[Rfam]
A member of the RNA family "mir-181 microRNA precursor family" from Rattus norvegicus, 82 nucleotides long. Pairs were carried over by alignment from the consensus structure, which was predicted with PFOLD. NCBI's taxonomy places the organism under Eukaryota, Chordata, Glires, Muridae, Rattus.
RNA sequence: GGGUUUGGGGGAACAUUCAACCUGUCGGUGAGUUUGGGCAGCUCAGACAAACCAUCGACCGUUGAGUGGACCCCGAGGCCUG
Numbered sequence: 001g002g003g004u005u006u007g008g009g010g011g012a013a014c015a016u017u018c019a020a021c022c023u024g025u026c027g028g029u030g031a032g033u034u035u036g037g038g039c040a041g042c043u044c045a046g047a048c049a050a051a052c053c054a055u056c057g058a059c060c061g062u063u064g065a066g067u068g069g070a071c072c073c074c075g076a077g078g079c080c081u082g
Base pairs, nucleotide, nucleotide: 002081003080004078005077006076008074014068015067016066017065018064019063020062021061024059025058026057027056028055029054030053032052033051034050035049